[Rfam]
A member of the RNA family "L4-Archaeoglobi ribosomal protein leades" from Halalkalicoccus jeotgali, 100 nucleotides long.
RNA sequence: CUGAAGGGCGCGUACGGGUCAAUUGCGGACUGCAACACCCACUCUCCCUCAUAACGCCUCCCGGAAUGGAGGUCCAGCAGGGGGAACGCGUGACCGUCAG
Numbered sequence: 001c002u003g004a005a006g007g008g009c010g011c012g013u014a015c016g017g018g019u020c021a022a023u024u025g026c027g028g029a030c031u032g033c034a035a036c037a038c039c040c041a042c043u044c045u046c047c048c049u050c051a052u053a054a055c056g057c058c059u060c061c062c063g064g065a066a067u068g069g070a071g072g073u074c075c076a077g078c079a080g081g082g083g084g085a086a087c088g089c090g091u092g093a094c095c096g097u098c099a100g
Base pairs, nucleotide, nucleotide: 001100002099003098004097008091009090010089011088012087013086016040017039018038023035024034025033026032027031043085044084045083046082047081048080049079052076
On this family, see Eckert and Weinberg, BMC Microbiol 2020: "Discovery of 20 novel ribosomal leader candidates in bacteria and archaea".
The family's consensus secondary structure is taken from published work.